Description: The family of this 125-nucleotide RNA sequence is "Small nucleolar RNA SNORD22".
[Rfam]
RNA sequence: UCCCAAUGAAGAAACUUUCACAUGUCUUACUCUCUGUCCUAGUCCCAGAGCCUGUAAAGGUGAACCACUGGGACUGGCUGGGGGAGAAGAGGAAGAUUUGUUCCAGAAGGAACUGUCUGAGGGAU
Dot-bracket structure: ((((....................................................................................................................)))).

Rfam 15.1 lists 1,081 matches to the family in 414 species. It is one of the family's seed sequences. By type it is a C/D-box small nucleolar RNA. The base pairs follow the family's consensus structure, which was predicted with PFOLD.